[Rfam]
RNA sequence: ACAGAUCGAAAGCCGCGACACUCAUUCCACACAGAACCCUUCGGUGUUCAUUUUCAUGAGUGGGCUAAGGUCUGAGAAUAUGCUCCCUUGAUCGGUUCUAGCUGAGCCUGGCUGUAAAUUUGCCAAAUAACAUAUCAGAAAUACUUCGGAAAUCCCGCUGAACCCGAAGACCCUUCGUCUCGACGGAAAGAGGGUUGGGAUAUCUGGAUUUGAAUUUGUUGUGGAGAUUGGGUAGCGUUCGUCGACGAACACAUCUCCUGUCAUAACCUCUUGCGAGGGAGGCAUGGGUUAUGUUGUGAUGUCCGACGUUCGUUUACCCUUCAGUGCACUUCGCGGCUCACGGUUUCCUGGUUCGUUUCGCGAACGGAUUGGCAACUGUGAAACUCGAUUCAGACUACUCUUGGUCUGU
Numbered sequence: 001a002c003a004g005a006u007c008g009a010a011a012g013c014c015g016c017g018a019c020a021c022u023c024a025u026u027c028c029a030c031a032c033a034g035a036a037c038c039c040u041u042c043g044g045u046g047u048u049c050a051u052u053u054u055c056a057u058g059a060g061u062g063g064g065c066u067a068a069g070g071u072c073u074g075a076g077a078a079u080a081u082g083c084u085c086c087c088u089u090g091a092u093c094g095g096u097u098c099u100a101g102c103u104g105a106g107c108c109u110g111g112c113u114g115u116a117a118a119u120u121u122g123c124c125a126a127a128u129a130a131c132a133u134a135u136c137a138g139a140a141a142u143a144c145u146u147c148g149g150a151a152a153u154c155c156c157g158c159u160g161a162a163c164c165c166g167a168a169g170a171c172c173c174u175u176c177g178u179c180u181c182g183a184c185g186g187a188a189a190g191a192g193g194g195u196u197g198g199g200a201u202a203u204c205u206g207g208a209u210u211u212g213a214a215u216u217u218g219u220u221g222u223g224g225a226g227a228u229u230g231g232g233u234a235g236c237g238u239u240c241g242u243c244g245a246c247g248a249a250c251a252c253a254u255c256u257c258c259u260g261u262c263a264u265a266a267c268c269u270c271u272u273g274c275g276a277g278g279g280a281g282g283c284a285u286g287g288g289u290u291a292u293g294u295u296g297u298g299a300u301g302u303c304c305g306a307c308g309u310u311c312g313u314u315u316a317c318c319c320u321u322c323a324g325u326g327c328a329c330u331u332c333g334c335g336g337c338u339c340a341c342g343g344u345u346u347c348c349u350g351g352u353u354c355g356u357u358u359c360g361c362g363a364a365c366g367g368a369u370u371g372g373c374a375a376c377u378g379u380g381a382a383a384c385u386c387g388a389u390u391c392a393g394a395c396u397a398c399u400c401u402u403g404g405u406c407u408g409u
Base pairs, nucleotide, nucleotide: 001409002408003407004406007403008402009401012337013336014335015334016333017332018331020061021060022059023058024057034049035048036047037046039044072393073392074391075390076389083226084225085224086223094108095107096106097105098104109125110124111123112122114120127222128221129220130219131218132217146208147207338381339380340379341378342377343376344375
This 409-nucleotide RNA from Lentinula aciculospora belongs to the Rfam family "Nuclear RNase P". It is annotated as a ribozyme. Ribonuclease P (RNase P) is a ubiquitous endoribonuclease, found in archaea, bacteria and eukarya as well as chloroplasts and mitochondria. Its best characterised activity is the generation of mature 5'-ends of tRNAs by cleaving the 5'-leader elements of precursor-tRNAs. Cellular RNase Ps are ribonucleoproteins. RNA from bacterial RNase Ps retains its catalytic activity in the absence of the protein subunit, i.e. it is a ribozyme.